Rfam assigns this 92-nucleotide RNA sequence from Stackebrandtia albiflava to the family "Selenocysteine transfer RNA". The source organism's lineage runs through Bacteria, Bacillati, Actinomycetes, Glycomycetales and Stackebrandtia. The literature on the family includes a 2000 paper in FEBS Lett by Mizutani and Goto, "Eukaryotic selenocysteine tRNA has the 9/4 secondary structure". It scores 72 bits against the family's covariance model.
RNA sequence: GGAGGCGGGCAGGUGUCUGGUGGCCCUCACGAUCUUCAAAAUCGAUGCGGCCGGGUCGCCCGGCCGGGCGGGUUCGAUUCCCGUACGCCUCC
Numbered sequence: 001g002g003a004g005g006c007g008g009g010c011a012g013g014u015g016u017c018u019g020g021u022g023g024c025c026c027u028c029a030c031g032a033u034c035u036u037c038a039a040a041a042u043c044g045a046u047g048c049g050g051c052c053g054g055g056u057c058g059c060c061c062g063g064c065c066g067g068g069c070g071g072g073u074u075c076g077a078u079u080c081c082c083g084u085a086c087g088c089c090u091c092c
Stems, first nucleotide, its partner, number of pairs: 001092007009084001012027002015024003030044004048066005069083004